Rfam assigns this 69-nucleotide RNA from Stegodyphus mimosarum to the family "mir-71 microRNA precursor family". The source organism's lineage runs through Eukaryota, Metazoa, Ecdysozoa, Arachnida and Stegodyphus. Gene Ontology terms of the family: miRNA-mediated post-transcriptional gene silencing and RISC complex. The base pairs follow the family's consensus structure, which was predicted with RNAalifold.

[Rfam]
RNA sequence: UUUCUGUGAAAGACAUGGGUAGUGAGAUGUUUACCAGUCCCAUCUCACUACCUUGUCUUUGACGGUAAG
Dot-bracket structure: ........(((((((.(((.(((((((((...........))))))))).)))))))))).........